[Rfam]
RNA sequence: GUGGCUUAAACUCUAUGAGUAAGGAAACUAGCGCCCUACCUGACAAGUAGGGUUCCAAAGAAUUUAUUUCUUUGGCAAUUUAUGUGGGACCCAUGGAACGGUUUUUGCGACCCACCCCCUACUUUGGGGUGGGGGGCGAGAGCCGGUCCCCUCC
Numbered sequence: 001g002u003g004g005c006u007u008a009a010a011c012u013c014u015a016u017g018a019g020u021a022a023g024g025a026a027a028c029u030a031g032c033g034c035c036c037u038a039c040c041u042g043a044c045a046a047g048u049a050g051g052g053u054u055c056c057a058a059a060g061a062a063u064u065u066a067u068u069u070c071u072u073u074g075g076c077a078a079u080u081u082a083u084g085u086g087g088g089a090c091c092c093a094u095g096g097a098a099c100g101g102u103u104u105u106u107g108c109g110a111c112c113c114a115c116c117c118c119c120u121a122c123u124u125u126g127g128g129g130u131g132g133g134g135g136g137c138g139a140g141a142g143c144c145g146g147u148c149c150c151c152u153c154c
Base pairs, nucleotide, nucleotide: 005023006022007021008020033053034052035051036050037049038048039047057073058072059071060070061069087154088153089152095149096148097147099145100144101143104139105138108136111133112132114130115129116128117127118126

U12 minor spliceosomal RNA: a 154-nucleotide RNA from Saprolegnia diclina. Pairs were carried over by alignment from the consensus structure. Its family is annotated with mRNA branch site recognition, pre-mRNA branch point binding and U12 snRNP in the Gene Ontology. Rfam 15.1 lists 2,106 matches to the family in 1,170 species. A reference for the family is Tarn and Steitz (1997), "Pre-mRNA splicing: the discovery of a new spliceosome doubles the challenge", Trends Biochem Sci. Its Rfam clan is "U2 clan". Taxonomically the source falls in Saprolegnia diclina (Eukaryota, Saprolegniomycetes, Saprolegniaceae, Saprolegnia).